[Rfam]
RNA sequence: GUCAGAGUAGGUAAGGUGCGUUAAGUGUUAAGGGAUGGGAAGUAGCCCUUAAACGAAGGUUAUAACCGCGAUAUCUUACUGCAUCCGCUGAU
Numbered sequence: 001g002u003c004a005g006a007g008u009a010g011g012u013a014a015g016g017u018g019c020g021u022u023a024a025g026u027g028u029u030a031a032g033g034g035a036u037g038g039g040a041a042g043u044a045g046c047c048c049u050u051a052a053a054c055g056a057a058g059g060u061u062a063u064a065a066c067c068g069c070g071a072u073a074u075c076u077u078a079c080u081g082c083a084u085c086c087g088c089u090g091a092u
Base pairs, nucleotide, nucleotide: 001092002091003090004089005088010080011079012078013077014076015075016074017073018072019070020069021068025054026053028052029051030050031049032048033047034046038086039085040084042082058067059066060065

Rfam assigns this 92-nucleotide sequence from Anaeromonas frigoriresistens to the family "THF (Tetrahydrofolate) riboswitch aptamer". Its family is annotated with tetrahydrofolate metabolic process in the Gene Ontology. Rfam's curators write: Tetrahydrofolate (THF) riboswitch was first reported for Ames et al. as an RNA motif in 5' untranslated (5'-UTR)regions of folate transport and biosynthesis genes in Firmicutes genomes.